[Rfam]
RNA sequence: CAAAGUGUUUUCCUGAAAAUGCAUAUAAUGCUCUGAUAGGGAGAGCAGUUUCUACACCCAGCCGUAAACCGGGUACUAUGUCAUCCAUAGAUGGACUA
Dot-bracket structure: .................(..(((((...((((((.......))))))........((((.(.......).))))..)))))..)..............
Rfam assigns this 98-nucleotide RNA from Ruthenibacterium lactatiformans to the family "Purine riboswitch aptamer".
Riboswitches are metabolite binding domains within certain messenger RNAs that serve as precision sensors for their corresponding targets.